[Rfam]
The family of this 74-nucleotide sequence from Suricata suricatta is "Small nucleolar RNA SNORD113/SNORD114 family". Rfam classes the family as a C/D-box small nucleolar RNA. Gene Ontology terms of the family: RNA processing and nucleolus. The literature on the family includes a 2002 paper in Hum Mol Genet by Cavaille et al., "Identification of tandemly-repeated C/D snoRNA genes at the imprinted human 14q32 domain reminiscent of those at the Prader-Willi/Angelman syndrome region".
RNA sequence: UGGACCAAUGAUGAUGGCUGAUGGCAUAGGAGUCAUGUGUGAUGAAUACUUGUGUCUGGAACUCUGAGGUCCAA
Number, nucleotide and partner (000 for none) at each position: 001u000002g072003g071004a070005c069006c068007a000008a000009u000010g000011a000012u000013g000014a000015u000016g000017g000018c000019u000020g000021a000022u000023g000024g000025c000026a000027u000028a000029g000030g000031a000032g000033u000034c000035a000036u000037g000038u000039g000040u000041g000042a000043u000044g000045a000046a000047u000048a000049c000050u000051u000052g000053u000054g000055u000056c000057u000058g000059g000060a000061a000062c000063u000064c000065u000066g000067a000068g006069g005070u004071c003072c002073a000074a000
The imprinted human domain at 14q32 contains two clusters of tandemly repeated small nucleolar RNAs named 14q(I) and 14q(II) snoRNAs.
The family's consensus secondary structure is taken from published work.